A member of the RNA family "MIR168 microRNA precursor family" from Ziziphus jujuba, 258 nucleotides long. For this family Rfam cites "Prediction of plant microRNA targets" (Rhoades et al., Cell, 2002). The base pairs follow the family's consensus structure, which was predicted with WAR.
[Rfam]
RNA sequence: UUAUCGGUGGUCUCUAAUUCGCUUGGUGCAGGUCGGGAACUUGUUCGCCUUUUUUUUUUUUUUUUUUUUUUGGGGGGGGGACUUCAUUUUUUUUUUUUUUUUCCCCUUCUUCUUCUUCUUCCUCUUCCAAUUAGGUAGUUUCAGUGUUAUCUUGGUGAUUGGUUGUUUUUUUUGGGAGAGAAGAGGAAAAAAACAAAAACAAAAAAAAGGCGAAAUGGGUCCCGCCUUGCAUCAACUGAAUCGGAGACCGCGGUGAAA
Numbered sequence: 001u002u003a004u005c006g007g008u009g010g011u012c013u014c015u016a017a018u019u020c021g022c023u024u025g026g027u028g029c030a031g032g033u034c035g036g037g038a039a040c041u042u043g044u045u046c047g048c049c050u051u052u053u054u055u056u057u058u059u060u061u062u063u064u065u066u067u068u069u070u071u072g073g074g075g076g077g078g079g080g081a082c083u084u085c086a087u088u089u090u091u092u093u094u095u096u097u098u099u100u101u102u103c104c105c106c107u108u109c110u111u112c113u114u115c116u117u118c119u120u121c122c123u124c125u126u127c128c129a130a131u132u133a134g135g136u137a138g139u140u141u142c143a144g145u146g147u148u149a150u151c152u153u154g155g156u157g158a159u160u161g162g163u164u165g166u167u168u169u170u171u172u173u174g175g176g177a178g179a180g181a182a183g184a185g186g187a188a189a190a191a192a193a194c195a196a197a198a199a200c201a202a203a204a205a206a207a208a209g210g211c212g213a214a215a216u217g218g219g220u221c222c223c224g225c226c227u228u229g230c231a232u233c234a235a236c237u238g239a240a241u242c243g244g245a246g247a248c249c250g251c252g253g254u255g256a257a258a
Base pairs, nucleotide, nucleotide: 013245014244017241018240019239020238023235024234025233026232027231028230029229030228031227032226034224035223036222037221038220040218041217